[Rfam]
RNA sequence: CAGAGGAGGAUGCAAAUAAACCGAAGGUUUAUAUCUAGGAUGCGUCCGACGAAAUACCACAGAGCGAAAGCGAUGUGGUGAUACCCGUA
Numbered sequence: 001c002a003g004a005g006g007a008g009g010a011u012g013c014a015a016a017u018a019a020a021c022c023g024a025a026g027g028u029u030u031a032u033a034u035c036u037a038g039g040a041u042g043c044g045u046c047c048g049a050c051g052a053a054a055u056a057c058c059a060c061a062g063a064g065c066g067a068a069a070g071c072g073a074u075g076u077g078g079u080g081a082u083a084c085c086c087g088u089a
Base pairs, nucleotide, nucleotide: 008047009046010045011044012043013042016032017031018030019029020028021027056079057078058077060075061074064071065070

The record is an 89-nucleotide sequence, which matches "GA-cis RNA" in Rfam.